A member of the RNA family "Glycine riboswitch aptamer" from Kroppenstedtia pulmonis, 107 nucleotides long.
It scores 63 bits against the family's covariance model.

[Rfam]
RNA sequence: AUGAUCGUUGUGGGAGAGACUGAACAAGGUGUUCAGCGCCGAAGGAGCAAAGGUCCCAAAAAACCUUGGGACAGAAUCUCUCAGGCAAACGGUACCACAAUGUGACG
Number, nucleotide and partner (000 for none) at each position: 001a000002u000003g000004a000005u000006c102007g101008u100009u099010g098011u097012g096013g095014g000015a000016g000017a000018g000019a000020c036021u035022g034023a033024a000025c000026a000027a000028g000029g000030u000031g000032u000033u023034c022035a021036g020037c000038g086039c085040c084041g082042a081043a000044g000045g080046a079047g078048c000049a000050a000051a000052g072053g000054u000055c000056c000057c000058a000059a000060a000061a000062a000063a000064c000065c000066u000067u000068g000069g000070g000071a000072c052073a000074g000075a000076a000077u000078c047079u046080c045081u042082c041083a000084g040085g039086c038087a000088a000089a000090c000091g000092g000093u000094a000095c013096c012097a011098c010099a009100a008101u007102g006103u000104g000105a000106c000107g000